[Rfam]
RNA sequence: CGUGCGCACAAUCUGAAGGAAGCCGGCGGCAAAGUUCCGACCCGAGGAACACAAACAGUAUCAGGCGCAAAACGUGGGGUAAGACUGCGAUUCAAGUCAAAGCCCGAAAGCUACACAGACACGUCAGCGUAAAUGCUGCGGGUACAUGGAAUGAAAGUGAAUCGUC
Numbered sequence: 001c002g003u004g005c006g007c008a009c010a011a012u013c014u015g016a017a018g019g020a021a022g023c024c025g026g027c028g029g030c031a032a033a034g035u036u037c038c039g040a041c042c043c044g045a046g047g048a049a050c051a052c053a054a055a056c057a058g059u060a061u062c063a064g065g066c067g068c069a070a071a072a073c074g075u076g077g078g079g080u081a082a083g084a085c086u087g088c089g090a091u092u093c094a095a096g097u098c099a100a101a102g103c104c105c106g107a108a109a110g111c112u113a114c115a116c117a118g119a120c121a122c123g124u125c126a127g128c129g130u131a132a133a134u135g136c137u138g139c140g141g142g143u144a145c146a147u148g149g150a151a152u153g154a155a156a157g158u159g160a161a162u163c164g165u166c
Stems, first nucleotide, its partner, number of pairs: 001006001022166001024164003029158002034152006040143005056138005065130003072124005077105004083098004

A member of the RNA family "Group II catalytic intron D1-D4-3" from Desulfosporosinus sp. HMP52, 166 nucleotides long. The source organism's lineage runs through Bacteria, Bacillota, Clostridia, Desulfitobacteriaceae and Desulfosporosinus. The base pairs follow the family's consensus structure.